[Rfam]
RNA sequence: UGGGACGAUCUUUGGCGUAUAGCGGGCAAUCUCCAAUUAACUUUUCAGAAUACCUUGAAUAUUUAAGGAAUGACCUUAUCUAAUCUCCAGUAGCAAAUUCUGACCAGUAUUGGAGGUGUUAUGCGUCUGGAUCGUCUUAC
Numbered sequence: 001u002g003g004g005a006c007g008a009u010c011u012u013u014g015g016c017g018u019a020u021a022g023c024g025g026g027c028a029a030u031c032u033c034c035a036a037u038u039a040a041c042u043u044u045u046c047a048g049a050a051u052a053c054c055u056u057g058a059a060u061a062u063u064u065a066a067g068g069a070a071u072g073a074c075c076u077u078a079u080c081u082a083a084u085c086u087c088c089a090g091u092a093g094c095a096a097a098u099u100c101u102g103a104c105c106a107g108u109a110u111u112g113g114a115g116g117u118g119u120u121a122u123g124c125g126u127c128u129g130g131a132u133c134g135u136c137u138u139a140c
Stems, first nucleotide, its partner, number of pairs: 002138010014127006021120003025045002028042001030040001032039001053068006070079003083117010
Dot-bracket structure: .((((((((((..((((((.(((.((.(.(.(......)).).)).......((((((....)))))).(((....)))...((((((((((...............))))))))))))).)))))).))))))))))..
Shown here is a 140-nucleotide sequence from Xenorhabdus szentirmaii, a member of the family "Yersinia sRNA 155(RyfD)". The literature on the family includes a 2016 paper in Proc Natl Acad Sci U S A by Righetti et al., "Temperature-responsive in vitro RNA structurome of Yersinia pseudotuberculosis". Lineage of the source: Bacteria > Pseudomonadota > Enterobacterales > Xenorhabdus > Xenorhabdus szentirmaii. Rfam describes the family as follows. The sRNA was identified by and is confirmed to have a stable secondary structure by using genome-wide structure probing at different temperatures. The function is unknown. The family's RNA type in Rfam is small RNA.